[Rfam]
RNA: Group II catalytic intron D1-D4-3
RNA sequence: UUGAUAGUGAUGUCAUGAGUGAAGGAAGUGGUGUAGCGAUUCUUUUGAGCGUACGCAUAGAAACUUGAUAAGGCUAAAUGGAGGAUAAGGUUGCUUGACAAACCGAAGUCCAAAAGGUAAACGUAAAACCAAGACAGUAAAUCAAGACGUUGUGAAGGAAAUAGGAUUCAU
Numbered sequence: 001u002u003g004a005u006a007g008u009g010a011u012g013u014c015a016u017g018a019g020u021g022a023a024g025g026a027a028g029u030g031g032u033g034u035a036g037c038g039a040u041u042c043u044u045u046u047g048a049g050c051g052u053a054c055g056c057a058u059a060g061a062a063a064c065u066u067g068a069u070a071a072g073g074c075u076a077a078a079u080g081g082a083g084g085a086u087a088a089g090g091u092u093g094c095u096u097g098a099c100a101a102a103c104c105g106a107a108g109u110c111c112a113a114a115a116g117g118u119a120a121a122c123g124u125a126a127a128a129c130c131a132a133g134a135c136a137g138u139a140a141a142u143c144a145a146g147a148c149g150u151u152g153u154g155a156a157g158g159a160a161a162u163a164g165g166a167u168u169c170a171u
Base pairs, nucleotide, nucleotide: 002015003014004013005012006011028171029170030169031168037164042158043157044156045155046154047153048151049150050149051148052147064146065145066144067143068142073138074137075136079132081130083111084110085109086108089104090103091102092101